[Rfam]
RNA sequence: ACAAUUGAAAACAGUUAGUAUCAUAUAGAUCAGAAAUAAGGUUUGAUUAUCUCUACUUCGCUCCGUAAUACGCGAAACUAUGAUAUCUUUUAUUACCAUA
Numbered sequence: 001a002c003a004a005u006u007g008a009a010a011a012c013a014g015u016u017a018g019u020a021u022c023a024u025a026u027a028g029a030u031c032a033g034a035a036a037u038a039a040g041g042u043u044u045g046a047u048u049a050u051c052u053c054u055a056c057u058u059c060g061c062u063c064c065g066u067a068a069u070a071c072g073c074g075a076a077a078c079u080a081u082g083a084u085a086u087c088u089u090u091u092a093u094u095a096c097c098a099u100a
Stems, first nucleotide, its partner, number of pairs: 018086008028048007057076005062070001

Purine riboswitch aptamer: a 100-nucleotide RNA sequence from Candidatus Izimoplasma sp. HR2. From the family's description: Riboswitches are metabolite binding domains within certain messenger RNAs that serve as precision sensors for their corresponding targets. The match comes from Rfam's covariance-model search (55 bits). Pairs were carried over by alignment from the consensus structure, which is taken from published work. The organism belongs to Candidatus Izemoplasma, within Bacteria.